Shown here is a 267-nucleotide RNA sequence from Medicago truncatula, a member of the family "MIR2655 microRNA precursor family".
[Rfam]
RNA sequence: CCCAUAAGUAAUAAAAAGUCUGUUUAGAUCCCUUAACUUUAUUUAAAGUAUCAGUUUGAUCCUUUCUAUUAAUUUAAUUCAAAAAAAGGUUAAAUUUUGGUCCCUUAACUUAUUUAAUUAGUAUUGGUUUGAUCCCUUAACUUAUUUAAUUAGUAUUAGUUUGAUCCCUAAACUUAACGUAUUUUUGAACUAAAUUAACAGAAAGGACCAAACUGAUACUUUAAAUAAAGUUAAAGGACCUAAACGGAUUUUUGAUUAUUUAUGGGA
Numbered sequence: 001c002c003c004a005u006a007a008g009u010a011a012u013a014a015a016a017a018g019u020c021u022g023u024u025u026a027g028a029u030c031c032c033u034u035a036a037c038u039u040u041a042u043u044u045a046a047a048g049u050a051u052c053a054g055u056u057u058g059a060u061c062c063u064u065u066c067u068a069u070u071a072a073u074u075u076a077a078u079u080c081a082a083a084a085a086a087a088g089g090u091u092a093a094a095u096u097u098u099g100g101u102c103c104c105u106u107a108a109c110u111u112a113u114u115u116a117a118u119u120a121g122u123a124u125u126g127g128u129u130u131g132a133u134c135c136c137u138u139a140a141c142u143u144a145u146u147u148a149a150u151u152a153g154u155a156u157u158a159g160u161u162u163g164a165u166c167c168c169u170a171a172a173c174u175u176a177a178c179g180u181a182u183u184u185u186u187g188a189a190c191u192a193a194a195u196u197a198a199c200a201g202a203a204a205g206g207a208c209c210a211a212a213c214u215g216a217u218a219c220u221u222u223a224a225a226u227a228a229a230g231u232u233a234a235a236g237g238a239c240c241u242a243a244a245c246g247g248a249u250u251u252u253u254g255a256u257u258a259u260u261u262a263u264g265g266g267a
Stems, first nucleotide, its partner, number of pairs: 002265007023244003027240001029238001031236001033234011045222003
Dot-bracket structure: .(((((((..............(((.(.(.(.(((((((((((.(((............................................................................................................................................................................))).))))))))))).).).).)))..............)))))))..

Record summary:
Lineage of the source: Eukaryota > Embryophyta > Tracheophyta > Gunneridae > Medicago. Rfam links the family to the GO terms RISC complex and miRNA-mediated post-transcriptional gene silencing.